[Rfam]
The family of this 142-nucleotide RNA from Drosophila navojoa is "Small nucleolar RNA psi18S-841/snoR66". psi18S-841 is a member of the H/ACA class of snoRNA. This family is responsible for guiding the modification of uridine 841 in Drosophila 18S rRNA to pseudouridine. Pairs were carried over by alignment from the consensus structure, which was predicted with RNAfold. The family has 24 seed sequences and 108 matches in Rfam 15.1. The match comes from Rfam's covariance-model search (111 bits).
RNA sequence: UGCAGGCGCACUCUGUGUCACAUUGAAUUGCCUCAUGUGAUGACAAUUUGUUACCCUUGCUAGAGUAAAUAGAUGAAGCUGCGACUUAUCCAUGUGAUUGAGUUUUUCAAGCUGAUUGCAUUGAAUGCGCGCUUUACAUUAC
Numbered sequence: 001u002g003c004a005g006g007c008g009c010a011c012u013c014u015g016u017g018u019c020a021c022a023u024u025g026a027a028u029u030g031c032c033u034c035a036u037g038u039g040a041u042g043a044c045a046a047u048u049u050g051u052u053a054c055c056c057u058u059g060c061u062a063g064a065g066u067a068a069a070u071a072g073a074u075g076a077a078g079c080u081g082c083g084a085c086u087u088a089u090c091c092a093u094g095u096g097a098u099u100g101a102g103u104u105u106u107u108c109a110a111g112c113u114g115a116u117u118g119c120a121u122u123g124a125a126u127g128c129g130c131g132c133u134u135u136a137c138a139u140u141a142c
Stems, first nucleotide, its partner, number of pairs: 002060002004057003010051002014045003017041007025034002066141003071135003078132002082129002089124002092121008
The organism belongs to mojavensis species complex, within Eukaryota.